[Rfam]
RNA sequence: UCCAGAAAAAGGCAAACCAUCUGAAAAGGUGGGACGCAAAGACACAGGUCUAAUGUUGGAACUCCAACGAUGACGGCUGGUCCUCCUGG
Numbered sequence: 001u002c003c004a005g006a007a008a009a010a011g012g013c014a015a016a017c018c019a020u021c022u023g024a025a026a027a028g029g030u031g032g033g034a035c036g037c038a039a040a041g042a043c044a045c046a047g048g049u050c051u052a053a054u055g056u057u058g059g060a061a062c063u064c065c066a067a068c069g070a071u072g073a074c075g076g077c078u079g080g081u082c083c084u085c086c087u088g089g
Stems, first nucleotide, its partner, number of pairs: 012037002017032006041082003045079003048074003055068004
RNA: c-di-GMP-I riboswitch aptamer